[Rfam]
Shown here is a 120-nucleotide RNA sequence from Heptacodium miconioides, a member of the family "Plastid-psbA-1 3UTR RNA".
The family's RNA type in Rfam is cis-regulatory element.
It is one of the family's seed sequences.
Lineage of the source: Eukaryota > Streptophyta > Tracheophyta > asterids > Heptacodium.
Rfam's curators write: Plastid psbA-1 is a non-coding RNA (ncRNA) present in plastids. It was identified in inverted repeat sequences in the 3 prime untranslate region (3UTR) of photosystem II quinone-binding protein (psbA).
RNA sequence: UUGAAGCUCCAUCUACAAAUGGAUAAGACCCAGUCUUAGUGUAUACGGGUUUUAAAAAUCAAUAAAAAAGGAGCAAUAGCACCUUCUUGCUAAAACAAGAAAGGGAUUAUUGCUCCGUUU
Numbered sequence: 001u002u003g004a005a006g007c008u009c010c011a012u013c014u015a016c017a018a019a020u021g022g023a024u025a026a027g028a029c030c031c032a033g034u035c036u037u038a039g040u041g042u043a044u045a046c047g048g049g050u051u052u053u054a055a056a057a058a059u060c061a062a063u064a065a066a067a068a069a070g071g072a073g074c075a076a077u078a079g080c081a082c083c084u085u086c087u088u089g090c091u092a093a094a095a096c097a098a099g100a101a102a103g104g105g106a107u108u109a110u111u112g113c114u115c116c117g118u119u120u
Stems, first nucleotide, its partner, number of pairs: 008023005067119002070116010082104002085100004